[Rfam]
Annotation: The family of this 80-nucleotide sequence from Amphiprion ocellaris is "mir-219 microRNA precursor family". Lineage of the source: Eukaryota > Bilateria > Neoteleostei > Euacanthomorphacea > Amphiprion. It scores 67 bits against the family's covariance model. The family's consensus secondary structure was predicted with RNAalifold. For this family Rfam cites "Vertebrate microRNA genes" (Lim et al., Science, 2003).
RNA sequence: CUAGCUGCUGAUUGUCCAAACGCAAUUCUUGUGAAAUGAUCGAACCGAACCUAGAAUUGUGCCUGGACAUCUGUUGCUGG
Numbered sequence: 001c002u003a004g005c006u007g008c009u010g011a012u013u014g015u016c017c018a019a020a021c022g023c024a025a026u027u028c029u030u031g032u033g034a035a036a037u038g039a040u041c042g043a044a045c046c047g048a049a050c051c052u053a054g055a056a057u058u059g060u061g062c063c064u065g066g067a068c069a070u071c072u073g074u075u076g077c078u079g080g
Stems, first nucleotide, its partner, number of pairs: 002079004007074001010071003014068005021061009031051001